[Rfam]
A member of the RNA family "Saccharopolyspora sRNA 350" from Actinophytocola xinjiangensis, 507 nucleotides long. Pairs were carried over by alignment from the consensus structure, which was predicted with RNAfold. For this family Rfam cites "Prediction and characterization of small non-coding RNAs related to secondary metabolites in Saccharopolyspora erythraea" (Liu et al., PLoS One, 2013).

RNA sequence: UUGACCGUGUACUCCCACAUGCUCUGCGGGUCGGCGAGGGUUUCCGCGCCGAAAUGGUCGCCGUCGGCCAGCGUGCCCAGACUGGUGUCGUUACCGUAAUGCCCGGCACCAAUUUUGUUCACUUUUCCAUGGGCGAUCAGGAAUGCCUGAUUGGAUUCAUGUCCGAACUCGACGAUGACGUCCCCGGCGGCGUAUUCGCGUUGUUCGAAACGGUCGGCCAGAGUGGUCAGGACAUCGAGGUCGUCGUAGCCGCGCAGGAUGGGCAGCUCGCCCAGUUCGGCGGGAAUUACCGCGACGUCGCUGCCGGUGUUGACGAAGGUCACGCGGCCGUCGCCGACGGCAUAGGUGAGGCGGCGGUUGACCCGGUAGGUGCCGCCGGAGACUUCGAUCCAGGGGAGCAUGCGGAGCAACCAGCGGGACGUGAUGCCCUGCAUCUGCGGAACGGACUUCUUCGUCGUCGCGAGAUUCCGCGCGGCGGUCGUCGCCAGGCUCUGCUGGCUGUUCCCG
Numbered sequence: 001u002u003g004a005c006c007g008u009g010u011a012c013u014c015c016c017a018c019a020u021g022c023u024c025u026g027c028g029g030g031u032c033g034g035c036g037a038g039g040g041u042u043u044c045c046g047c048g049c050c051g052a053a054a055u056g057g058u059c060g061c062c063g064u065c066g067g068c069c070a071g072c073g074u075g076c077c078c079a080g081a082c083u084g085g086u087g088u089c090g091u092u093a094c095c096g097u098a099a100u101g102c103c104c105g106g107c108a109c110c111a112a113u114u115u116u117g118u119u120c121a122c123u124u125u126u127c128c129a130u131g132g133g134c135g136a137u138c139a140g141g142a143a144u145g146c147c148u149g150a151u152u153g154g155a156u157u158c159a160u161g162u163c164c165g166a167a168c169u170c171g172a173c174g175a176u177g178a179c180g181u182c183c184c185c186g187g188c189g190g191c192g193u194a195u196u197c198g199c200g201u202u203g204u205u206c207g208a209a210a211c212g213g214u215c216g217g218c219c220a221g222a223g224u225g226g227u228c229a230g231g232a233c234a235u236c237g238a239g240g241u242c243g244u245c246g247u248a249g250c251c252g253c254g255c256a257g258g259a260u261g262g263g264c265a266g267c268u269c270g271c272c273c274a275g276u277u278c279g280g281c282g283g284g285a286a287u288u289a290c291c292g293c294g295a296c297g298u299c300g301c302u303g304c305c306g307g308u309g310u311u312g313a314c315g316a317a318g319g320u321c322a323c324g325c326g327g328c329c330g331u332c333g334c335c336g337a338c339g340g341c342a343u344a345g346g347u348g349a350g351g352c353g354g355c356g357g358u359u360g361a362c363c364c365g366g367u368a369g370g371u372g373c374c375g376c377c378g379g380a381g382a383c384u385u386c387g388a389u390c391c392a393g394g395g396g397a398g399c400a401u402g403c404g405g406a407g408c409a410a411c412c413a414g415c416g417g418g419a420c421g422u423g424a425u426g427c428c429c430u431g432c433a434u435c436u437g438c439g440g441a442a443c444g445g446a447c448u449u450c451u452u453c454g455u456c457g458u459c460g461c462g463a464g465a466u467u468c469c470g471c472g473c474g475g476c477g478g479u480c481g482u483c484g485c486c487a488g489g490c491u492c493u494g495c496u497g498g499c500u501g502u503u504c505c506c507g
Stems, first nucleotide, its partner, number of pairs: 003390002006387002009384001012381002016327001021325002025322002031316002037311002040308003046304003050300003055232001058229001060227005066110002075103001078101002083096004118221002122217002126213002130209001131206006140197001143195001144192002151187004156178002160174003235295003240290002243287002250282001253279002256277002262269001330341003352378006361371003391431005397425001399423003403418001407415001437476002440473001443470004448464003452460001477506002480501001484499005
Overview: By type it is an antisense RNA.